[Rfam]
RNA: Nuclear RNase P
RNA sequence: GGAAGGAAGCUCACUGUAGAGGUUACAUACUGAGUGCGUCAAUUCUGUGAUGUCACUUCAUUAUUCCCUCCGGGAAGGUCUGAGACAAGAGCCAAUAGCCGCCCUUACAGGGCGUCACUUGAGCGGGUGAGUGAGUCCCCAGCAACCCCACGGUGGAGUGGACCGGCCCGCUGUGUGGAGGAGGCUCUGCAGGAGAGGCGGGGUGGGCUUGUGGUGAGAGGGAGUGGUCGCAGAUUGAGGCUGCUCCCACCUUACACACGGCUCCACCCGGCUGAUGCUGCCUCCUCCCCGGGCCUUGGAAGUGGCUCUCGGCUGGCUGUAUGAGUCCAAUGGCUGAGGUGGGGCAGCUGCACGGGAUGUGUGCGCGCCCCAUAACCCAAUUCAGACCACUGUCCGGAAUUCC
Numbered sequence: 001g002g003a004a005g006g007a008a009g010c011u012c013a014c015u016g017u018a019g020a021g022g023u024u025a026c027a028u029a030c031u032g033a034g035u036g037c038g039u040c041a042a043u044u045c046u047g048u049g050a051u052g053u054c055a056c057u058u059c060a061u062u063a064u065u066c067c068c069u070c071c072g073g074g075a076a077g078g079u080c081u082g083a084g085a086c087a088a089g090a091g092c093c094a095a096u097a098g099c100c101g102c103c104c105u106u107a108c109a110g111g112g113c114g115u116c117a118c119u120u121g122a123g124c125g126g127g128u129g130a131g132u133g134a135g136u137c138c139c140c141a142g143c144a145a146c147c148c149c150a151c152g153g154u155g156g157a158g159u160g161g162a163c164c165g166g167c168c169c170g171c172u173g174u175g176u177g178g179a180g181g182a183g184g185c186u187c188u189g190c191a192g193g194a195g196a197g198g199c200g201g202g203g204u205g206g207g208c209u210u211g212u213g214g215u216g217a218g219a220g221g222g223a224g225u226g227g228u229c230g231c232a233g234a235u236u237g238a239g240g241c242u243g244c245u246c247c248c249a250c251c252u253u254a255c256a257c258a259c260g261g262c263u264c265c266a267c268c269c270g271g272c273u274g275a276u277g278c279u280g281c282c283u284c285c286u287c288c289c290c291g292g293g294c295c296u297u298g299g300a301a302g303u304g305g306c307u308c309u310c311g312g313c314u315g316g317c318u319g320u321a322u323g324a325g326u327c328c329a330a331u332g333g334c335u336g337a338g339g340u341g342g343g344g345c346a347g348c349u350g351c352a353c354g355g356g357a358u359g360u361g362u363g364c365g366c367g368c369c370c371c372a373u374a375a376c377c378c379a380a381u382u383c384a385g386a387c388c389a390c391u392g393u394c395c396g397g398a399a400u401u402c403c
Base pairs, nucleotide, nucleotide: 001403002402003401004400005395006394007393010338011337012336013335015333019070020069021068022067032058033057034056035055036054037052038051039050040049041048080385081384082383083382084381090314091313092312093311100114101113102112103111104110115130116129117128118127119126120125131310133308134307135306136305137304152295153294154293339373340372341371342370343369344368345367